The family of this 114-nucleotide RNA sequence from Camellia sinensis is "U5 spliceosomal RNA". The family's consensus secondary structure is taken from published work. The literature on the family includes a 1997 paper in Nucleic Acids Res by Zwieb, "The uRNA database". U5 RNA is a component of both types of known spliceosome. The precise function of this molecule is unknown, though it is known that the 5' loop is required for splice site selection and p220 binding, and that both the 3' stem-loop and the Sm site are important for Sm protein binding and cap methylation.
RNA sequence: AGCCACGCGAUGAGCCCAAAGCGAACUAUUCUUUCGCCUUUUACUAAAGAAUACCGUGUGUUCAUCGCAAAUAGUGGCAUACGCUUAUUUUUGGAGAGCCCUUUCCAAAGGUUU
Numbered sequence: 001a002g003c004c005a006c007g008c009g010a011u012g013a014g015c016c017c018a019a020a021g022c023g024a025a026c027u028a029u030u031c032u033u034u035c036g037c038c039u040u041u042u043a044c045u046a047a048a049g050a051a052u053a054c055c056g057u058g059u060g061u062u063c064a065u066c067g068c069a070a071a072u073a074g075u076g077g078c079a080u081a082c083g084c085u086u087a088u089u090u091u092u093g094g095a096g097a098g099c100c101c102u103u104u105c106c107a108a109a110g111g112u113u114u
Base pairs, nucleotide, nucleotide: 003077004076005075006074008067009066010065011064012063013062014061015060017058018057027053028052029051030050031049032048033047034046095114097113098112099111100110102108